RNA sequence: UCCAUAUGAUGUUACAAAUAAUAUUUGCUACUUCAGACACCUUCGGGUGAAUGAGACAUUAAAUUAUCACCAAGAUCUCUGAUGGA
Numbered sequence: 001u002c003c004a005u006a007u008g009a010u011g012u013u014a015c016a017a018a019u020a021a022u023a024u025u026u027g028c029u030a031c032u033u034c035a036g037a038c039a040c041c042u043u044c045g046g047g048u049g050a051a052u053g054a055g056a057c058a059u060u061a062a063a064u065u066a067u068c069a070c071c072a073a074g075a076u077c078u079c080u081g082a083u084g085g086a
Stems, first nucleotide, its partner, number of pairs: 001086004
The record is an 86-nucleotide RNA sequence from Pichia californica, which matches "Small nucleolar RNA SNORD24" in Rfam. The literature on the family includes a 2001 paper in Proc Natl Acad Sci U S A by Hirose and Steitz, "Position within the host intron is critical for efficient processing of box C/D snoRNAs in mammalian cells". Rfam classes the family as a C/D-box small nucleolar RNA. The match comes from Rfam's covariance-model search (52 bits). Lineage of the source: Eukaryota > Fungi > Dikarya > Saccharomycotina > Pichia. Gene Ontology terms of the family: nucleolus and RNA processing.